RNA sequence: CUGAUUAUUCGCACCAUUCUUCGAAUGGUGGGUUAGCGCGCAUCCGGCUCAAUGACGACAACCCGCCCCUGAGGCGGGUUUU
Dot-bracket structure: ...........((((((.......)))))).............................((((((((.....))))))))..
This 82-nucleotide RNA sequence from Burkholderia seminalis belongs to the Rfam family "Pseudomonas sRNA P9". Rfam describes the family as follows. This small RNA (sRNA) was computationally identified in the genome of the opportunistic pathogen Pseudomonas aeruginosa and its expression verified by northern blot analysis. P9 appears to be conserved in several Pseudomonas species in addition to Bordetella spp. In both Pseudomonas and Bordetella spp P9 appears to be located upstream of a predicted threonine dehydratase gene. The literature on the family includes a 2006 paper in Nucleic Acids Res by Livny et al., "Identification of 17 Pseudomonas aeruginosa sRNAs and prediction of sRNA-encoding genes in 10 diverse pathogens using the bioinformatic tool sRNAPredict2".